[Rfam]
RNA sequence: UUAAACCUUCAGGGCAGGGUGAAAUUCCCUACCGGUGGUAUAGCCCACGAGCCGAAAGGCUGAUUCGGUUAGAUUCCGAAGCCGACAGUAUAGUCUGGAUGAAAGAAGGUUAUC
Numbered sequence: 001u002u003a004a005a006c007c008u009u010c011a012g013g014g015c016a017g018g019g020u021g022a023a024a025u026u027c028c029c030u031a032c033c034g035g036u037g038g039u040a041u042a043g044c045c046c047a048c049g050a051g052c053c054g055a056a057a058g059g060c061u062g063a064u065u066c067g068g069u070u071a072g073a074u075u076c077c078g079a080a081g082c083c084g085a086c087a088g089u090a091u092a093g094u095c096u097g098g099a100u101g102a103a104a105g106a107a108g109g110u111u112a113u114c
Stems, first nucleotide, its partner, number of pairs: 004111007017029003031094002033084002035048004043082002051060003064080005086097003
The record is a 114-nucleotide RNA sequence from Anaerosalibacter bizertensis, which matches "FMN riboswitch aptamer (RFN element)" in Rfam. The match comes from Rfam's covariance-model search (122 bits). The base pairs follow the family's consensus structure, which is taken from published work. The RFN element is a highly conserved domain that is found frequently in the 5'-untranslated regions of prokaryotic mRNAs that encode for flavin mononucleotide (FMN) biosynthesis and transport proteins. This element is a metabolite-dependent riboswitch that directly binds FMN in the absence of proteins. Lineage of the source: Bacteria > Bacillati > Bacillota > Sporanaerobacteraceae > Anaerosalibacter.